Archaeal large subunit ribosomal RNA: a 100-nucleotide part of an RNA from Sulfolobales archaeon HS-7. It scores 2848 bits against the family's covariance model. Pairs were carried over by alignment from the consensus structure, which is taken from published work.
RNA sequence: GAUAGGGCACGAAAGAGAUGAGAGAACCUAAAGGAAAGGGGUGCGAACCCCGAGUACGAGGGACCUUGAUCGGUGUCCUAUCUUCCGUCUUGAAACACGG
Numbered sequence: 001g002a003u004a005g006g007g008c009a010c011g012a013a014a015g016a017g018a019u020g021a022g023a024g025a026a027c028c029u030a031a032a033g034g035a036a037a038g039g040g041g042u043g044c045g046a047a048c049c050c051c052g053a054g055u056a057c058g059a060g061g062g063a064c065c066u067u068g069a070u071c072g073g074u075g076u077c078c079u080a081u082c083u084u085c086c087g088u089c090u091u092g093a094a095a096c097a098c099g100g
Base pairs, nucleotide, nucleotide: 001082002081003080004079005078006077007076008075009074010073015071016070023066024065027062028061029060033057038051039050040049041048042047085100086099087098088097